[Rfam]
RNA: FMN riboswitch aptamer (RFN element)
Organism: Vibrio palustris
RNA sequence: UUUUAUUCUCAGGGCGGGGUGUAAUUCCCCACCGGUGGUAGGCCGCAAGGUAAGCCCACGAGCGCUCGAUACGUCGAGGUCAGCAGAUCUGGUCAAAGUCCAGAGCCGACGGUAAUAGUCCGGAUGAGAGAGAAUGAUA
Numbered sequence: 001u002u003u004u005a006u007u008c009u010c011a012g013g014g015c016g017g018g019g020u021g022u023a024a025u026u027c028c029c030c031a032c033c034g035g036u037g038g039u040a041g042g043c044c045g046c047a048a049g050g051u052a053a054g055c056c057c058a059c060g061a062g063c064g065c066u067c068g069a070u071a072c073g074u075c076g077a078g079g080u081c082a083g084c085a086g087a088u089c090u091g092g093u094c095a096a097a098g099u100c101c102a103g104a105g106c107c108g109a110c111g112g113u114a115a116u117a118g119u120c121c122g123g124a125u126g127a128g129a130g131a132g133a134a135u136g137a138u139a
Stems, first nucleotide, its partner, number of pairs: 003137008017029003031119002033108002035059004054106002062084002088104005110122003